Rfam assigns this 51-nucleotide RNA sequence from Blastochloris tepida to the family "Guanidine-II riboswitch aptamer (mini-ykkC)".
[Rfam]
RNA sequence: ACCCGGGGACGACCCUGGGCCAGGCUCUUCGAUUUUGCCGGGACGACCCGG
Numbered sequence: 001a002c003c004c005g006g007g008g009a010c011g012a013c014c015c016u017g018g019g020c021c022a023g024g025c026u027c028u029u030c031g032a033u034u035u036u037g038c039c040g041g042g043a044c045g046a047c048c049c050g051g
Base pairs, nucleotide, nucleotide: 002019003018004017005016006015007014008013038051039050040049041048042047
NCBI's taxonomy places the organism under Bacteria, Pseudomonadati, Pseudomonadota, Blastochloridaceae, Blastochloris.